Shown here is an 83-nucleotide RNA sequence from Rhizopogon vesiculosus, a member of the family "tRNA". By type it is a transfer RNA. The base pairs follow the family's consensus structure, which is taken from published work. Transfer RNA (tRNA) molecules are approximately 80 nucleotides in length. Their secondary structure includes four short double-helical elements and three loops (D, anti-codon, and T loops). It scores 54 bits against the family's covariance model.

RNA sequence: GGCGUUAUAGUGUAGUGGUUAUCACUCGGGAUUUUGAUGUUAUAUUCUUUCCCGAAACCCAGGUUCGAACCCUGGUAUCGCCU
Numbered sequence: 001g002g003c004g005u006u007a008u009a010g011u012g013u014a015g016u017g018g019u020u021a022u023c024a025c026u027c028g029g030g031a032u033u034u035u036g037a038u039g040u041u042a043u044a045u046u047c048u049u050u051c052c053c054g055a056a057a058c059c060c061a062g063g064u065u066c067g068a069a070c071c072c073u074g075g076u077a078u079c080g081c082c083u
Stems, first nucleotide, its partner, number of pairs: 001082004006077002010025003027054005059075005
Dot-bracket structure: ((((.((..(((..........))).(((((..................)))))....(((((.......))))))).)))).